[Rfam]
RNA sequence: UAGAUAGGGGUCGGCGACCCGCUGGGUAUGCCGAUUUCCCACAUAAUGGCUUCCGGGAUGACCGGGAUAAGGGCUGCAGGGGACCUGGUUGCAAGGAUGC
Numbered sequence: 001u002a003g004a005u006a007g008g009g010g011u012c013g014g015c016g017a018c019c020c021g022c023u024g025g026g027u028a029u030g031c032c033g034a035u036u037u038c039c040c041a042c043a044u045a046a047u048g049g050c051u052u053c054c055g056g057g058a059u060g061a062c063c064g065g066g067a068u069a070a071g072g073g074c075u076g077c078a079g080g081g082g083a084c085c086u087g088g089u090u091g092c093a094a095g096g097a098u099g100c
Stems, first nucleotide, its partner, number of pairs: 007038001010035007017027003073092002076089002079086002

Pyrrolysine insertion sequence mtbB: a 100-nucleotide RNA sequence from Methanosarcina sp. MTP4. It scores 108 bits against the family's covariance model. The family's RNA type in Rfam is cis-regulatory element. Taxonomically the source falls in Methanosarcina (Archaea, Methanobacteriati, Methanosarcinales, Methanosarcinaceae).